[Rfam]
RNA sequence: AGAAUGCAUAUUAAUUAUCCUUGGGGCCAUGGGAUAAACAAAAACCUUGCAAAAACAAGUUAGUACACCCAAGAAUGGUUUUAGCACAAUUACUAACCUAUAACUCUGAUACAAGUUGAAGGGAAAAACUC
Numbered sequence: 001a002g003a004a005u006g007c008a009u010a011u012u013a014a015u016u017a018u019c020c021u022u023g024g025g026g027c028c029a030u031g032g033g034a035u036a037a038a039c040a041a042a043a044a045c046c047u048u049g050c051a052a053a054a055a056c057a058a059g060u061u062a063g064u065a066c067a068c069c070c071a072a073g074a075a076u077g078g079u080u081u082u083a084g085c086a087c088a089a090u091u092a093c094u095a096a097c098c099u100a101u102a103a104c105u106c107u108g109a110u111a112c113a114a115g116u117u118g119a120a121g122g123g124a125a126a127a128a129c130u131c
Stems, first nucleotide, its partner, number of pairs: 009121001011119006022108005029101005048086002053080002056077002060073002063070001

A member of the RNA family "MIR845_2 microRNA precursor family" from Vitis rotundifolia, 131 nucleotides long. On this family, see Jaillon et al., Nature 2007: "The grapevine genome sequence suggests ancestral hexaploidization in major angiosperm phyla". It scores 128 bits against the family's covariance model. Rfam 15.1 lists 180 matches to the family in 2 species. Lineage of the source: Eukaryota > Viridiplantae > rosids > Viteae > Vitis. Rfam links the family to the GO terms miRNA-mediated post-transcriptional gene silencing and RISC complex.